The family of this 92-nucleotide sequence from Thioalkalivibrio paradoxus is "Glycine riboswitch aptamer".
[Rfam]
RNA sequence: CAGGCAGACUCUGGAGAGCGGCCGCAUGCGGCCCACCGAAGGGGGCGUUGCCUGCAACGCAAACUCUCAGGUUUCAGGACAGAGGGGCGGCU
Numbered sequence: 001c002a003g004g005c006a007g008a009c010u011c012u013g014g015a016g017a018g019c020g021g022c023c024g025c026a027u028g029c030g031g032c033c034c035a036c037c038g039a040a041g042g043g044g045g046c047g048u049u050g051c052c053u054g055c056a057a058c059g060c061a062a063a064c065u066c067u068c069a070g071g072u073u074u075c076a077g078g079a080c081a082g083a084g085g086g087g088c089g090g091c092u
Base pairs, nucleotide, nucleotide: 009084010083011082012081013080020033021032022031023030035072036071037070038068039067042066043065044064049059050058
Notes: Gene Ontology term of the family: glycine biosynthetic process. Pairs were carried over by alignment from the consensus structure. The organism belongs to Thioalkalivibrio paradoxus, within Bacteria. Rfam 15.1 lists 9,425 matches to the family in 5,228 species.